[Rfam]
RNA sequence: AGGUGGUCUGGAUUGGAGACAGGGAUGAGGCAGAGCAUGGGAUGGGGCCAUCAACAAAAAAAAAACGUUUCUUCCACUGCGAAAACAUGCUUGUUCGCUUGCCUGCGAAAUAGGGGAGGCAGUUGUGAGAGGUUCUUCAUCAGGCACACAAAAGGUUGAGAGCUCCGCUGGUGUUGUUGCUCCCUCCCCUGCACUGCCUCUUCCCUGGCUCCCCCAUCACGUCCGGCC
Numbered sequence: 001a002g003g004u005g006g007u008c009u010g011g012a013u014u015g016g017a018g019a020c021a022g023g024g025a026u027g028a029g030g031c032a033g034a035g036c037a038u039g040g041g042a043u044g045g046g047g048c049c050a051u052c053a054a055c056a057a058a059a060a061a062a063a064a065a066c067g068u069u070u071c072u073u074c075c076a077c078u079g080c081g082a083a084a085a086c087a088u089g090c091u092u093g094u095u096c097g098c099u100u101g102c103c104u105g106c107g108a109a110a111u112a113g114g115g116g117a118g119g120c121a122g123u124u125g126u127g128a129g130a131g132g133u134u135c136u137u138c139a140u141c142a143g144g145c146a147c148a149c150a151a152a153a154g155g156u157u158g159a160g161a162g163c164u165c166c167g168c169u170g171g172u173g174u175u176g177u178u179g180c181u182c183c184c185u186c187c188c189c190u191g192c193a194c195u196g197c198c199u200c201u202u203c204c205c206u207g208g209c210u211c212c213c214c215c216a217u218c219a220c221g222u223c224c225g226g227c228c
Base pairs, nucleotide, nucleotide: 016211017210018209020207021206022205023204024203025202028199029198030197031196032195033194035192036191037190039188041187045182046181047180048179

Rfam assigns this 228-nucleotide RNA from Panicum virgatum to the family "MIR408 microRNA precursor family".
It scores 72 bits against the family's covariance model.
Its family is annotated with miRNA-mediated post-transcriptional gene silencing and RISC complex in the Gene Ontology.
Rfam 15.1 lists 299 matches to the family in 186 species.